The family of this 126-nucleotide RNA sequence from Corynebacterium imitans is "atpB RNA".
Nucleotides: 126
Stems, first nucleotide, its partner, number of pairs: 001048005006042007072092008
Number, partner (000 for none) and nucleotide at each position: 001048c002047u003046g004045u005044c006042c007041c008040c009039g010038c011037g012036g013000u014000a015000g016000c017000a018000g019000a020000u021000g022000u023000g024000c025000g026000a027000c028000g029000g030000a031000g032000u033000c034000c035000g036012c037011c038010g039009c040008g041007g042006g043000u044005g045004a046003c047002a048001g049000c050000u051000u052000u053000g054000a055000u056000g057000a058000a059000g060000a061000c062000g063000u064000c065000c066000a067000u068000c069000g070000c071000a072092c073091c074090g075089c076088a077087u078086u079085c080000a081000c082000a083000c084000c085079g086078g087077a088076u089075g090074c091073g092072g093000c094000c095000c096000g097000a098000g099000a100000a101000c102000g103000g104000g105000a106000g107000a108000g109000a110000a111000c112000g113000c114000u115000g116000a117000g118000c119000g120000u121000u122000a123000c124000a125000a126000c